A member of the RNA family "Nematode snoRNA ceN36-1" from Cylicocyclus nassatus, 133 nucleotides long. Pairs were carried over by alignment from the consensus structure, which was predicted with RNAalifold. A reference for the family is Jia et al. (2007), "Systematic identification of non-coding RNA 2,2,7-trimethylguanosine cap structures in Caenorhabditis elegans", BMC Mol Biol. Taxonomically the source falls in Cylicocyclus (Eukaryota, Eumetazoa, Protostomia, Nematoda). Rfam classes the family as an H/ACA-box small nucleolar RNA.
RNA sequence: UAUCGCUCCCCAGCUCCGUUUCGUGACGUCACCGGCGGUACGGCGUUUCAUGGAGCGUAAAUUGACGCCGGUCCAAUCCACACUUGAUAUUGUCCUGCGAGGCUGAUUGAGUACUUUCAUGGACUCGACAUUU
Numbered sequence: 001u002a003u004c005g006c007u008c009c010c011c012a013g014c015u016c017c018g019u020u021u022c023g024u025g026a027c028g029u030c031a032c033c034g035g036c037g038g039u040a041c042g043g044c045g046u047u048u049c050a051u052g053g054a055g056c057g058u059a060a061a062u063u064g065a066c067g068c069c070g071g072u073c074c075a076a077u078c079c080a081c082a083c084u085u086g087a088u089a090u091u092g093u094c095c096u097g098c099g100a101g102g103c104u105g106a107u108u109g110a111g112u113a114c115u116u117u118c119a120u121g122g123a124c125u126c127g128a129c130a131u132u133u
Stems, first nucleotide, its partner, number of pairs: 004057005012047003016043004021038001024035001083111004088106001092103003